This 155-nucleotide RNA sequence from Paratissierella segnis belongs to the Rfam family "M-box riboswitch aptamer (ykoK leader)". The base pairs follow the family's consensus structure. Lineage of the source: Bacteria > Bacillati > Tissierellales > Tissierellaceae > Paratissierella. Rfam describes the family as follows. M-box riboswitch, also know as ykoK leader is described as a metaloregulatory RNA that sense divalent metals and function as a genetic control element of genes related to divalent metal transport in bacteria. It was first reported upstream of the B.subtilis ykoK gene and genes with related functions in other bacteria. A search with the family's covariance model found it, with a score of 100 bits.
RNA sequence: AAUAAUACUCGGUAGGUAAGGCUACUAUGAGGAUAUGGAUUACUGCCGCGAAAUGGUGGAGACACUAUUAGCUGGUAUAAACAGUUGUUGUCGUGAAGGCUUCAACCAAUGUAAUUUCACCGCCUCGUAGAGUUAAAGCUCAAACGGGAUUGCUU
Number, nucleotide and partner (000 for none) at each position: 001a000002a000003u000004a000005a151006u000007a000008c148009u147010c146011g145012g000013u097014a000015g140016g139017u138018a000019a000020g134021g133022c132023u000024a000025c130026u129027a128028u127029g126030a125031g124032g123033a000034u000035a000036u000037g000038g000039a115040u114041u113042a112043c111044u000045g076046c075047c074048g072049c071050g000051a000052a000053a000054u000055g066056g065057u064058g063059g000060a000061g000062a000063c058064a057065c056066u055067a000068u000069u000070a000071g049072c048073u000074g047075g046076u045077a000078u000079a000080a000081a000082c000083a000084g106085u105086u104087g103088u000089u000090g100091u099092c098093g000094u000095g000096a000097a013098g092099g091100c090101u000102u000103c087104a086105a085106c084107c000108a000109a000110u000111g043112u042113a041114a040115u039116u000117u000118c000119a000120c000121c000122g000123c032124c031125u030126c029127g028128u027129a026130g025131a000132g022133u021134u020135a000136a000137a000138g017139c016140u015141c000142a000143a000144a000145c011146g010147g009148g008149a000150u000151u005152g000153c000154u000155u000